[Rfam]
RNA sequence: UUGGUGGAAAAAGGCAAUCGCUAUAGUUUUAUAUGCUAUAGAGGAAAGUCCGGACUCCUUAGGACAAGACGCCUCUUAACGAGAGGGCGAAGUAAUUCGACGGAAAGUGCCACAGAAACGAUACCGCCAUUUUUUUGGCAAGGGUGAAAUCGUAAGGUAAGAGCUUACGGCUACAUUUAGUAAUAAAUGAGUGGGUAAACCCCGUCUGGAGCAAGACCAAAUAGAGGAAGAGAAUCGGUCCGGUUCAUUAAUAUUCCCGGGUAGGUUGCUUGAGCCUAAUUGCGAAAUUAGGCCUAGAUAGAUGAUUGCCCUAGACAGAAUCCGGCUUACAUUUCCACCAAUUAA
Numbered sequence: 001u002u003g004g005u006g007g008a009a010a011a012a013g014g015c016a017a018u019c020g021c022u023a024u025a026g027u028u029u030u031a032u033a034u035g036c037u038a039u040a041g042a043g044g045a046a047a048g049u050c051c052g053g054a055c056u057c058c059u060u061a062g063g064a065c066a067a068g069a070c071g072c073c074u075c076u077u078a079a080c081g082a083g084a085g086g087g088c089g090a091a092g093u094a095a096u097u098c099g100a101c102g103g104a105a106a107g108u109g110c111c112a113c114a115g116a117a118a119c120g121a122u123a124c125c126g127c128c129a130u131u132u133u134u135u136u137g138g139c140a141a142g143g144g145u146g147a148a149a150u151c152g153u154a155a156g157g158u159a160a161g162a163g164c165u166u167a168c169g170g171c172u173a174c175a176u177u178u179a180g181u182a183a184u185a186a187a188u189g190a191g192u193g194g195g196u197a198a199a200c201c202c203c204g205u206c207u208g209g210a211g212c213a214a215g216a217c218c219a220a221a222u223a224g225a226g227g228a229a230g231a232g233a234a235u236c237g238g239u240c241c242g243g244u245u246c247a248u249u250a251a252u253a254u255u256c257c258c259g260g261g262u263a264g265g266u267u268g269c270u271u272g273a274g275c276c277u278a279a280u281u282g283c284g285a286a287a288u289u290a291g292g293c294c295u296a297g298a299u300a301g302a303u304g305a306u307u308g309c310c311c312u313a314g315a316c317a318g319a320a321u322c323c324g325g326c327u328u329a330c331a332u333u334u335c336c337a338c339c340a341a342u343u344a345a
Base pairs, nucleotide, nucleotide: 001341002340003339004338005337006336007335008334009333010332013310014309015308016307017306018305019304021041022040023039024038025037026036027035029033046328047327048326050325051324052323053322054321055211056210057209058208062241063240064239065238067207068206069205070204071203072086073085074084075083076082087101088099089098090097091096102202103201107200108199109196110195111194124143125142126139127138128137129136151169152168153167154166155165156164172191174189175188176187177186178185179184215267216266217265218264226257227256228255229254232246233245234244235243236242274293275292276291277290278289279288280287281286

Source information
This 345-nucleotide RNA sequence from Candidatus Marinamargulisbacteria bacterium SCGC AG-414-C22 belongs to the Rfam family "Bacterial RNase P class A". The family's consensus secondary structure is taken from published work. It is annotated as a ribozyme.